[Rfam]
RNA: Eukaryotic large subunit ribosomal RNA, nucleotides 1447 to 1884
Nucleotides: 438
Stems, first nucleotide, its partner, number of pairs: 015033006034436004043416004049396002054078005063071002085392003089149002094143002096112003100109003120135002153170005173388004178384005183378002191200003208365006217350004222345007230335003233253002236250003257306005266296006275287004313330007402411002418430004
Number, partner (000 for none) and nucleotide at each position: 001000g002000g003000u004000a005000g006000u007000a008000g009000c010000a011000a012000a013000u014000a015033u016032u017031c018030a019029a020028g021000u022000g023000a024000g025000a026000g027000c028020c029019u030018u031017g032016a033015a034436g035435a036434c037433u038000g039000a040000a041000g042000u043416g044415g045414a046413g047000a048000a049396a050395g051000g052000u053000u054078c055077c056076a057075u058074g059000g060000u061000a062000a063071c064070a065000g066000c067000a068000g069000u070064u071063g072000g073000a074058c075057a076056u077055g078054g079000g080000u081000c082000a083000g084000u085392c086391g087390a088000u089149c090148c091000u092000a093000a094143g095142a096112g097111a098110u099000a100109g101108g102107g103000a104000a105000g106000u107102u108101c109100c110098g111097u112096u113000u114000u115000a116000a117000a118000g119000a120135g121134c122000g123000c124000g125000g126000u127000u128000g129000u130000c131000c132000g133000c134121g135120c136000g137000g138000c139000c140000u141000a142095u143094c144000g145000a146000a147000a148090g149089g150000g151000a152000a153170u154169c155168c156167g157166g158000u159000u160000a161000a162000g163000a164000u165000u166157c167156c168155g169154g170153a171000a172000c173388c174387a175386g176385g177000a178384u179383g180382u181381g182380g183378a184377u185000u186000u187000u188000g189000u190000a191200g192199c193198g194000g195000u196000a197000a198193c199192g200191c201000a202000a203000a204000u205000g206000a207000a208365c209364u210363u211362g212361g213360a214000g215000a216000c217350g218349u219348c220347g221000g222345c223344g224343g225342g226341g227340g228339c229000c230335c231334c232333g233253g234252g235000a236250a237249g238248a239000g240000u241000u242000a243000u244000c245000u246000u247000u248238u249237c250236u251000c252234c253233u254000u255000g256000a257306c258305a259304g260303u261302c262000u263000a264000c265000g266296a267295c268294c269293c270292u271291g272000a273000a274000a275287u276286c277285g278284g279000u280000u281000c282000g283000c284278c285277c286276g287275g288000a289000g290000a291271u292270a293269g294268g295267g296266u297000u298000a299000c300000a301000u302261g303260g304259c305258u306257g307000g308000u309000a310000g311000a312000g313330c314329u315328c316327g317326a318325c319324g320000g321000u322000u323000u324319c325318g326317u327316c328315g329314g330313g331000u332000c333232c334231g335230g336000u337000g338000c339228g340227u341226c342225c343224u344223c345222g346000a347220c348219g349218g350217c351000c352000c353000u354000u355000g356000a357000a358000a359000a360213u361212c362211c363210a364209a365208g366000g367000g368000a369000a370000c371000g372000a373000a374000u375000a376000a377184a378183u379000u380182u381181c382180a383179c384178g385176c386175u387174u388173g389000g390087u391086c392085g393000u394000a395050c396049u397000c398000a399000u400000a401000a402411c403410c404000g405000c406000a407000g408000c409000a410403g411402g412000u413046c414045u415044c416043c417000u418430a419429g420428g421427u422000g423000a424000a425000c426000a427421g428420c429419c430418u431000c432000u433037a434036g435035u436034u437000g438000a